[Rfam]
Nucleotides: 139
Base pairs, nucleotide, nucleotide: 011124012123013122014121018035019034020033021032022031023030036119037118038117039116040115041114052104053103054102060081061080062079063078064077065076066075084098085097087095
Number, partner (000 for none) and nucleotide at each position: 001000c002000a003000u004000g005000u006000u007000a008000u009000c010000g011124a012123g013122c014121c015000g016000a017000a018035u019034u020033c021032c022031c023030g024000c025000a026000u027000u028000u029000a030023c031022g032021g033020g034019a035018a036119g037118c038117g039116g040115g041114g042000g043000a044000u045000c046000c047000g048000u049000u050000u051000u052104g053103g054102g055000u056000g057000a058000a059000u060081u061080g062079a063078u064077c065076u066075c067000g068000c069000u070000a071000g072000a073000g074000a075066g076065g077064g078063a079062u080061c081060a082000u083000a084098g085097g086000g087095u088000g089000a090000c091000c092000u093000u094000c095087a096000a097085c098084c099000g100000a101000a102054c103053c104052c105000u106000u107000a108000a109000g110000c111000u112000a113000a114041c115040c116039u117038c118037g119036c120000a121014g122013g123012c124011u125000g126000u127000g128000g129000a130000a131000g132000g133000a134000g135000c136000u137000u138000u139000u
Shown here is a 139-nucleotide RNA from Paenibacillus sp. 7541, a member of the family "c-di-AMP riboswitch aptamer (ydaO/yuaA leader)". The organism belongs to Paenibacillus, within Bacteria.